[Rfam]
RNA: Actino-pnp RNA
Organism: Streptomyces radiopugnans
RNA sequence: GCCGGUCCUCGGUAGUGGCCCCCGGGCGAAAAGGUCCCGGGAGCUUCGAUCGAAGACCGGC
Numbered sequence: 001g002c003c004g005g006u007c008c009u010c011g012g013u014a015g016u017g018g019c020c021c022c023c024g025g026g027c028g029a030a031a032a033g034g035u036c037c038c039g040g041g042a043g044c045u046u047c048g049a050u051c052g053a054a055g056a057c058c059g060g061c
Stems, first nucleotide, its partner, number of pairs: 001061007009053005017045003021041006